[Rfam]
RNA: Acido-Lenti-1 RNA
Organism: Candidatus Brocadia sinica
RNA sequence: CCCAGGGCUGUCUCCCUGGGCUAUAUUCUGUCAGCCCUUCGGGUUU
Numbered sequence: 001c002c003c004a005g006g007g008c009u010g011u012c013u014c015c016c017u018g019g020g021c022u023a024u025a026u027u028c029u030g031u032c033a034g035c036c037c038u039u040c041g042g043g044u045u046u
Base pairs, nucleotide, nucleotide: 001020002019003018004017005016006015007014033045034044035043036042037041